Record summary:
The family of this 122-nucleotide RNA is "RAGATH-7-assoc RNA". It is one of the family's seed sequences. It is annotated as a small RNA.

[Rfam]
RNA sequence: AAAGAGCAUACUAUACUAUUAUACUGACCCAACAGUAUAUGAAAAUUCGUGUAUGAUGUAUAUCUCUCUAAUUGAGGCGUUACUAAUAAAGUAUGAAGGCGCAGAAGUGUAUAGAGCUCUUU
Numbered sequence: 001a002a003a004g005a006g007c008a009u010a011c012u013a014u015a016c017u018a019u020u021a022u023a024c025u026g027a028c029c030c031a032a033c034a035g036u037a038u039a040u041g042a043a044a045a046u047u048c049g050u051g052u053a054u055g056a057u058g059u060a061u062a063u064c065u066c067u068c069u070a071a072u073u074g075a076g077g078c079g080u081u082a083c084u085a086a087u088a089a090a091g092u093a094u095g096a097a098g099g100c101g102c103a104g105a106a107g108u109g110u111a112u113a114g115a116g117c118u119c120u121u122u
Base pairs, nucleotide, nucleotide: 001122002121003120004119005118006117007116011114012113013112014111015110016109023036024035025034026033037052038051039050040049041048042047066076067075068074081093082092083091084089